RNA sequence: GGUGCUAUGAUGAGAUAAAAACACCAAGGAAGUGUUUAUGGGCAGUGGACAAAAUCGUAAAGGUUUUGCCGUGAGCUUAUUUUUAAAACGACUUCUCCUUCCACUGAGCACU
Dot-bracket structure: (((((......................................................................................................)))))

The record is a 112-nucleotide RNA from Medicago truncatula, which matches "Small nucleolar RNA Z152/R70/R12/" in Rfam. A search with the family's covariance model found it, with a score of 94 bits. By type it is a C/D-box small nucleolar RNA. Pairs were carried over by alignment from the consensus structure, which was predicted with PFOLD.